[Rfam]
Nucleotides: 054
Stems, first nucleotide, its partner, number of pairs: 013043001014041003020036006
Number, partner (000 for none) and nucleotide at each position: 001000a002000u003000u004000a005000g006000u007000u008000u009000g010000c011000a012000c013043u014041g015040u016039a017000a018000g019000u020036c021035g022034c023033u024032u025031u026000g027000g028000a029000u030000a031025a032024a033023a034022g035021c036020g037000u038000c039016u040015g041014c042000u043013a044000a045000a046000u047000g048000c049000a050000u051000a052000c053000a054000u
Shown here is a 54-nucleotide sequence from Carassius auratus, a member of the family "UnaL2 LINE 3' element". Its family is annotated with transposition, RNA-mediated in the Gene Ontology. It scores 57 bits against the family's covariance model. For this family Rfam cites "Solution structure of an RNA stem-loop derived from the 3' conserved region of eel LINE UnaL2" (Baba et al., RNA, 2004). Rfam describes the family as follows. The eel long interspersed element (LINE) UnaL2 and its partner short interspersed element (SINE) share a conserved 3' tail containing a stem-loop that is critical for their retrotransposition. Presumably, the first step of retrotransposition is the recognition of their 3' tails by UnaL2-encoded reverse transcriptase. The solution structure of a 17-nucleotide RNA derived from the 3' tail of UnaL2 was determined by NMR.